Guanidine-I riboswitch aptamer: a 111-nucleotide RNA from Paraburkholderia fynbosensis. The pairing is the family consensus, mapped onto this sequence. NCBI's taxonomy places the organism under Bacteria, Pseudomonadati, Pseudomonadota, Betaproteobacteria, Paraburkholderia. About the family: This family represents a conserved RNA structure found upstream of the ykkC and yxkD genes in Bacillus subtilis and related genes in other bacteria. The function of this family is unclear although it has been suggested that it may function to switch on efflux pumps and detoxification systems in response to harmful environmental molecules.

RNA sequence: UGAUAGGAAAGCUAGGGUUCCGGUCCGCGGUGUGAUGCGGAUGUCUGGUCCGAGAGCAUUCCGGCUCCGGUUACGUUCGGGGCUCCACGGAGGGAUAAAAGCCCGGGAGAU
Numbered sequence: 001u002g003a004u005a006g007g008a009a010a011g012c013u014a015g016g017g018u019u020c021c022g023g024u025c026c027g028c029g030g031u032g033u034g035a036u037g038c039g040g041a042u043g044u045c046u047g048g049u050c051c052g053a054g055a056g057c058a059u060u061c062c063g064g065c066u067c068c069g070g071u072u073a074c075g076u077u078c079g080g081g082g083c084u085c086c087a088c089g090g091a092g093g094g095a096u097a098a099a100a101g102c103c104c105g106g107g108a109g110a111u
Base pairs, nucleotide, nucleotide: 007061008060009059011057012056015051016050020048021047022045023042024041025040026039027038028037063084064083065082066081067080068079069078070077086106088109092104093103094102